[Rfam]
RNA sequence: UCUCCCGCUUCACCUCCCUGAGCGGGUGCCUUAUCCCCUUAAGGCACAUCCUGUGCCCCCGGCCCCCCUUGCCGGGGGCUUUUUUU
Number, nucleotide and partner (000 for none) at each position: 001u000002c000003u000004c026005c025006c024007g023008c022009u021010u000011c000012a000013c000014c000015u000016c000017c000018c000019u000020g000021a009022g008023c007024g006025g005026g004027u000028g045029c044030c043031u042032u041033a040034u000035c000036c000037c000038c000039u000040u033041a032042a031043g030044g029045c028046a000047c000048a000049u000050c000051c000052u000053g000054u000055g079056c078057c077058c076059c075060c074061g073062g072063c000064c000065c000066c000067c000068c000069u000070u000071g000072c062073c061074g060075g059076g058077g057078g056079c055080u000081u000082u000083u000084u000085u000086u000